[Rfam]
Nucleotides: 060
Base pairs, nucleotide, nucleotide: 014044015043016042017041018040019039020038021037022036023035028059029058030057031056032055
Number, partner (000 for none) and nucleotide at each position: 001000g002000g003000g004000a005000a006000a007000a008000g009000a010000g011000g012000a013000u014044a015043g016042g017041g018040c019039u020038u021037g022036g023035g024000a025000c026000a027000u028059g029058a030057g031056c032055c033000a034000c035023c036022c037021c038020g039019a040018g041017u042016c043015c044014u045000c046000a047000g048000g049000u050000g051000a052000a053000u054000a055032g056031g057030c058029u059028c060000u
This 60-nucleotide RNA from Otolemur garnettii belongs to the Rfam family "Ma3 gene ribosomal frameshift signal".
Lineage of the source: Eukaryota > Opisthokonta > Teleostomi > Galagidae > Otolemur.
On this family, see Wills et al., J Biol Chem 2006: "A functional -1 ribosomal frameshift signal in the human paraneoplastic Ma3 gene".
Pairs were carried over by alignment from the consensus structure, which is taken from published work.
It is annotated as a frameshift element.